[Rfam]
RNA sequence: UGUCCCUGGCCUUGGUAGAGUGGCAUCUACUUAAUGAUGUUUAUCUCAUAUCAGCCAGGGACAAAGCAACCCUUGUUUACUCAACUUGGCUUCUGGUCUGGGCCAUGCCUGGUUCAUGACUUGGACACAUGG
Numbered sequence: 001u002g003u004c005c006c007u008g009g010c011c012u013u014g015g016u017a018g019a020g021u022g023g024c025a026u027c028u029a030c031u032u033a034a035u036g037a038u039g040u041u042u043a044u045c046u047c048a049u050a051u052c053a054g055c056c057a058g059g060g061a062c063a064a065a066g067c068a069a070c071c072c073u074u075g076u077u078u079a080c081u082c083a084a085c086u087u088g089g090c091u092u093c094u095g096g097u098c099u100g101g102g103c104c105a106u107g108c109c110u111g112g113u114u115c116a117u118g119a120c121u122u123g124g125a126c127a128c129a130u131g132g
Stems, first nucleotide, its partner, number of pairs: 001063008011054002014051001018047003022041006074127006088120001090118001094116003098112003102108002
Dot-bracket structure: ((((((((..((.(...(((.((((((........))))))...)))...).)).))))))))..........((((((........(.(...(((.(((.((...)).))).))).).).)))))).....

Small nucleolar RNA SNORA48: a 132-nucleotide RNA sequence from Carlito syrichta. The family has 24 seed sequences and 2,109 matches in Rfam 15.1. Rfam's curators write: The snoRNA ACA 48 has been identified to guide pseudouridylation of the residue U3797 in the 28S rRNA subunit. Rfam classes the family as an H/ACA-box small nucleolar RNA. Pairs were carried over by alignment from the consensus structure, which was predicted with RNAalifold.